[Rfam]
RNA sequence: GCCCUGAUAGCUCAGCUGGAUAGAGCAGAGGACUUCUAAGCCUAAGGUCGUAGGUUCGAAUCCUACUCGGGGCG
Numbered sequence: 001g002c003c004c005u006g007a008u009a010g011c012u013c014a015g016c017u018g019g020a021u022a023g024a025g026c027a028g029a030g031g032a033c034u035u036c037u038a039a040g041c042c043u044a045a046g047g048u049c050g051u052a053g054g055u056u057c058g059a060a061u062c063c064u065a066c067u068c069g070g071g072g073c074g
Base pairs, nucleotide, nucleotide: 001073002072003071004070005069006068007067010026011025012024013023029043030042031041050066051065052064053063054062